Rfam assigns this 67-nucleotide RNA sequence from Micromonospora craniellae to the family "Transposase-2 RNA". It scores 60 bits against the family's covariance model. The family's RNA type in Rfam is small RNA.
[Rfam]
RNA sequence: GAUGCGUGAACCCGGCACCACAACCGUGGGACAGACCGGGACCGUCCUACCGCAAGGCAGGACUACC
Numbered sequence: 001g002a003u004g005c006g007u008g009a010a011c012c013c014g015g016c017a018c019c020a021c022a023a024c025c026g027u028g029g030g031a032c033a034g035a036c037c038g039g040g041a042c043c044g045u046c047c048u049a050c051c052g053c054a055a056g057g058c059a060g061g062a063c064u065a066c067c
Stems, first nucleotide, its partner, number of pairs: 011040005018029004044063005050057002